About this RNA
Lysine riboswitch aptamer: a 174-nucleotide RNA from Anaeromicropila populeti. The source organism's lineage runs through Bacteria, Bacillota, Lachnospirales, Lachnospiraceae and Anaeromicropila. Pairs were carried over by alignment from the consensus structure, which is taken from published work.
RNA sequence: AUUUGAGGUAGAGGUGCGUCUUUUAAGAGUAAAGUACCAGACAUGGUCAGGCAUGGAGGAAGGUAUUAGAAAGGAAAAGAUGCCGAAGGGAAUAUUAACCUGUUAAGUAUUUCCUGGGCAUAUGAUGAAUAAUCAUAUGACUGUCAUCAAGCUGGAUGGAGUGCUACCUAAAGG
Numbered sequence: 001a002u003u004u005g006a007g008g009u010a011g012a013g014g015u016g017c018g019u020c021u022u023u024u025a026a027g028a029g030u031a032a033a034g035u036a037c038c039a040g041a042c043a044u045g046g047u048c049a050g051g052c053a054u055g056g057a058g059g060a061a062g063g064u065a066u067u068a069g070a071a072a073g074g075a076a077a078a079g080a081u082g083c084c085g086a087a088g089g090g091a092a093u094a095u096u097a098a099c100c101u102g103u104u105a106a107g108u109a110u111u112u113c114c115u116g117g118g119c120a121u122a123u124g125a126u127g128a129a130u131a132a133u134c135a136u137a138u139g140a141c142u143g144u145c146a147u148c149a150a151g152c153u154g155g156a157u158g159g160a161g162u163g164c165u166a167c168c169u170a171a172a173g174g
Stems, first nucleotide, its partner, number of pairs: 006169006016083009033067006087115010098104001116142002119139008144159005